[Rfam]
RNA sequence: UUGGACCCCAAUGCAGCUGCUGGCCACUGCACAAGAUUAGACAUAAGACUCUUGUGCGUGUGACAGCGGCUAUGAUGGGGCUUCCGUUACGCUUC
Numbered sequence: 001u002u003g004g005a006c007c008c009c010a011a012u013g014c015a016g017c018u019g020c021u022g023g024c025c026a027c028u029g030c031a032c033a034a035g036a037u038u039a040g041a042c043a044u045a046a047g048a049c050u051c052u053u054g055u056g057c058g059u060g061u062g063a064c065a066g067c068g069g070c071u072a073u074g075a076u077g078g079g080g081c082u083u084c085c086g087u088u089a090c091g092c093u094u095c
Stems, first nucleotide, its partner, number of pairs: 006080005012074001015071008024062001025060002028058006035051002
This 95-nucleotide RNA from Diachasma alloeum belongs to the Rfam family "mir-210 microRNA precursor family".
Rfam links the family to the GO terms miRNA-mediated post-transcriptional gene silencing and RISC complex.
NCBI's taxonomy places the organism under Eukaryota, Panarthropoda, Endopterygota, Apocrita, Diachasma.